[Rfam]
Group II catalytic intron D1-D4-3: a 173-nucleotide sequence from Phocaeicola coprocola. The source organism's lineage runs through Bacteria, Pseudomonadati, Bacteroidota, Phocaeicola and Phocaeicola coprocola. Pairs were carried over by alignment from the consensus structure.

RNA sequence: UCCAUCGUGAGGUGGAAUCUGAAAGAAGCUGGCGGCAAACAUCUGGUCUGACGAACAGAAACUUCAUAUAAGGCAUAAAAACCGUGGGUAAGGUUGCUAUCCAAACCAAAGCCCUAUAGCUAUUCGGAACGGUUAAUGUAGAUGAAGCAGACAUAAGAUUGAAAGUUAAUACC
Numbered sequence: 001u002c003c004a005u006c007g008u009g010a011g012g013u014g015g016a017a018u019c020u021g022a023a024a025g026a027a028g029c030u031g032g033c034g035g036c037a038a039a040c041a042u043c044u045g046g047u048c049u050g051a052c053g054a055a056c057a058g059a060a061a062c063u064u065c066a067u068a069u070a071a072g073g074c075a076u077a078a079a080a081a082c083c084g085u086g087g088g089u090a091a092g093g094u095u096g097c098u099a100u101c102c103a104a105a106c107c108a109a110a111g112c113c114c115u116a117u118a119g120c121u122a123u124u125c126g127g128a129a130c131g132g133u134u135a136a137u138g139u140a141g142a143u144g145a146a147g148c149a150g151a152c153a154u155a156a157g158a159u160u161g162a163a164a165g166u167u168a169a170u171a172c173c
Base pairs, nucleotide, nucleotide: 001016002015003014004013005012006011028173030171031170035166036165041159042158043157044156046152047151048150049149050148062147063146064145065144066143067142073139074138075137080134081133082132083131084130086114087113088112089111092107093106094105095104